[Rfam]
RNA sequence: GGAGCUUUAGAGAUGAGAGCUAAUUAAAAUCUUUCAUCCUUGCACUUUGAUUGUUAGUGAAGAUAAAUAAUGGGGAAUUUACAGUCUGAGAUGCUU
Numbered sequence: 001g002g003a004g005c006u007u008u009a010g011a012g013a014u015g016a017g018a019g020c021u022a023a024u025u026a027a028a029a030u031c032u033u034u035c036a037u038c039c040u041u042g043c044a045c046u047u048u049g050a051u052u053g054u055u056a057g058u059g060a061a062g063a064u065a066a067a068u069a070a071u072g073g074g075g076a077a078u079u080u081a082c083a084g085u086c087u088g089a090g091a092u093g094c095u096u
Stems, first nucleotide, its partner, number of pairs: 002096004007091002
About this RNA:
Shown here is a 96-nucleotide sequence from Striga asiatica, a member of the family "Small nucleolar RNA snoR26". Taxonomically the source falls in Striga (Eukaryota, Tracheophyta, Mesangiospermae, lamiids). It is annotated as a C/D-box small nucleolar RNA. The literature on the family includes a 2001 paper in RNA by Brown et al., "Multiple snoRNA gene clusters from Arabidopsis". The match comes from Rfam's covariance-model search (70 bits).